[Rfam]
A member of the RNA family "TPP riboswitch aptamer (THI element)" from Halomonas sp. THAF5a, 94 nucleotides long. Lineage of the source: Bacteria > Pseudomonadati > Gammaproteobacteria > Halomonadaceae > Halomonas. It scores 65 bits against the family's covariance model. Rfam describes the family as follows. Vitamin B(1) in its active form thiamin pyrophosphate (TPP) is an essential coenzyme that is synthesised by coupling of pyrimidine and thiazole moieties in bacteria.
RNA sequence: GCCCCAGACACGGGGUGCGGCCACGGCCGCUGAGAUGAUACCCGUCGAACCUGAUCCAGUUCACACUGGCGAAGGGAUGUCGGCCGGCUCCAGC
Numbered sequence: 001g002c003c004c005c006a007g008a009c010a011c012g013g014g015g016u017g018c019g020g021c022c023a024c025g026g027c028c029g030c031u032g033a034g035a036u037g038a039u040a041c042c043c044g045u046c047g048a049a050c051c052u053g054a055u056c057c058a059g060u061u062c063a064c065a066c067u068g069g070c071g072a073a074g075g076g077a078u079g080u081c082g083g084c085c086g087g088c089u090c091c092a093g094c
Base pairs, nucleotide, nucleotide: 007081008080009079010078011044012043013042014041016038017030018029019028020027021026050075051074052073056069057068058067059066